[Rfam]
Shown here is a 129-nucleotide RNA from Anas zonorhyncha, a member of the family "Small nucleolar RNA SNORA55". The organism belongs to Anas, within Eukaryota.
RNA sequence: GCACCUGAUCUUUCCCAUUCCUUGCUGCUCAGUGUGGGCCUGGGGACACAUGGUGCUUACAGAAAAGCUGAGUAAAUCCAGACAGGUGAUCUUUUGUUGAGUACUUGUCUCUACACCUCUGCAACACCU
Numbered sequence: 001g002c003a004c005c006u007g008a009u010c011u012u013u014c015c016c017a018u019u020c021c022u023u024g025c026u027g028c029u030c031a032g033u034g035u036g037g038g039c040c041u042g043g044g045g046a047c048a049c050a051u052g053g054u055g056c057u058u059a060c061a062g063a064a065a066a067g068c069u070g071a072g073u074a075a076a077u078c079c080a081g082a083c084a085g086g087u088g089a090u091c092u093u094u095u096g097u098u099g100a101g102u103a104c105u106u107g108u109c110u111c112u113a114c115a116c117c118u119c120u121g122c123a124a125c126a127c128c129u
Stems, first nucleotide, its partner, number of pairs: 001056005012046006020038002067122002070119003080110008
Dot-bracket structure: (((((......((((((..((...............))..)))))).....)))))..........((.(((.......((((((((...............))))))))......))).)).......
Record summary:
ACA55 is a member of the H/ACA class of snoRNA that guide the sites of modification of uridines to pseudouridines.